The family of this 112-nucleotide RNA from Dyella dinghuensis is "t44 RNA". It scores 61 bits against the family's covariance model. This family consists of a number of bacterial RNA genes of between 135 and 170 bases in length.
RNA sequence: UACAAGCCCAACCAACGCCACACACGUAUCGGCACCGUCUUCGGGGUGCUGCGGUCGUCCUUCCCAACAACGGACAUCGCGGUCGAAGCUGGGGAUACGUGGAGGUACCAAC
Numbered sequence: 001u002a003c004a005a006g007c008c009c010a011a012c013c014a015a016c017g018c019c020a021c022a023c024a025c026g027u028a029u030c031g032g033c034a035c036c037g038u039c040u041u042c043g044g045g046g047u048g049c050u051g052c053g054g055u056c057g058u059c060c061u062u063c064c065c066a067a068c069a070a071c072g073g074a075c076a077u078c079g080c081g082g083u084c085g086a087a088g089c090u091g092g093g094g095a096u097a098c099g100u101g102g103a104g105g106u107a108c109c110a111a112c
Stems, first nucleotide, its partner, number of pairs: 023101008035092003039088005048083008